[Rfam]
RNA sequence: UUCCAUCUUCGGGGCAGGGUGAAAUUCCCGACCGACGGUGAUGAGUGUUUGUGCACUCUUAGUCCGUGACCCGUGAGGUUUCGACCGAGCGGUGGACCUGGUGAGAAUCCGGGACCGACAGUUACAGUCUGGAUGGGAGAAGAUGUCG
Numbered sequence: 001u002u003c004c005a006u007c008u009u010c011g012g013g014g015c016a017g018g019g020u021g022a023a024a025u026u027c028c029c030g031a032c033c034g035a036c037g038g039u040g041a042u043g044a045g046u047g048u049u050u051g052u053g054c055a056c057u058c059u060u061a062g063u064c065c066g067u068g069a070c071c072c073g074u075g076a077g078g079u080u081u082c083g084a085c086c087g088a089g090c091g092g093u094g095g096a097c098c099u100g101g102u103g104a105g106a107a108u109c110c111g112g113g114a115c116c117g118a119c120a121g122u123u124a125c126a127g128u129c130u131g132g133a134u135g136g137g138a139g140a141a142g143a144u145g146u147c148g
Stems, first nucleotide, its partner, number of pairs: 004145007017029003031128002033117002035067004062115002071092002097113005119131003